[Rfam]
RNA: Vault RNA
Organism: Sander lucioperca
RNA sequence: GUAGGGGUUUAGCUCAGUGGUUACUUCGACUCCUCAGAGACGCUUAGCUCGACCGGUCUCCGGGCCGAGGGUUCAAACCACGGGCGCUGUCCUUUGCUUUU
Numbered sequence: 001g002u003a004g005g006g007g008u009u010u011a012g013c014u015c016a017g018u019g020g021u022u023a024c025u026u027c028g029a030c031u032c033c034u035c036a037g038a039g040a041c042g043c044u045u046a047g048c049u050c051g052a053c054c055g056g057u058c059u060c061c062g063g064g065c066c067g068a069g070g071g072u073u074c075a076a077a078c079c080a081c082g083g084g085c086g087c088u089g090u091c092c093u094u095u096g097c098u099u100u101u
Stems, first nucleotide, its partner, number of pairs: 002096006012085004017081004025077002028074002